Description:
Rfam assigns this 42-nucleotide RNA from Drosophila auraria to the family "Wingless localisation element 3 (WLE3)". Rfam classes the family as a cis-regulatory element.
RNA sequence: UGCUCGCAUACUGCUUUGGCCAGGACCAAAACGUAUGUGGAG
Numbered sequence: 001u002g003c004u005c006g007c008a009u010a011c012u013g014c015u016u017u018g019g020c021c022a023g024g025a026c027c028a029a030a031a032c033g034u035a036u037g038u039g040g041a042g
Stems, first nucleotide, its partner, number of pairs: 003042003006038006013032001015030005
Rfam's curators put it in the seed alignment.
Rfam links the family to the GO term RNA localization.
The literature on the family includes a 2008 paper in Development by dos Santos et al., "A stem-loop structure in the wingless transcript defines a consensus motif for apical RNA transport".